[Rfam]
RNA: Small nucleolar RNA SNORA69
Organism: Salvelinus namaycush
RNA sequence: AAAGCAGGUCUGCAAUUACAGUACUCCAAUCAGUGGGUGUGCUGUCAUUAAUCCUGCUGAGAGUAACAUUCUGCUUUGGAGUUCACACUUUGUCACAUCACCUGUGAUGGGGAUUCUCUUUAGUAUUGACAGUG
Dot-bracket structure: ..((((((..........((((((.((........)).))))))........))))))..........(..((((..((........(((((((((.......))))))))).....))..))))..)......